[Rfam]
RNA sequence: ACAACAUUUAGACCGUCGCGUCGGUCUAUCGAGAAAUAUCAACCGCUCGGUGGAAGAUCUUGCAUUUGUCGU
Numbered sequence: 001a002c003a004a005c006a007u008u009u010a011g012a013c014c015g016u017c018g019c020g021u022c023g024g025u026c027u028a029u030c031g032a033g034a035a036a037u038a039u040c041a042a043c044c045g046c047u048c049g050g051u052g053g054a055a056g057a058u059c060u061u062g063c064a065u066u067u068g069u070c071g072u
Base pairs, nucleotide, nucleotide: 004069005068006067015063016062020058021057022056025054026053027052028051029050030049031048032047033046
RNA: mir-2774 microRNA precursor family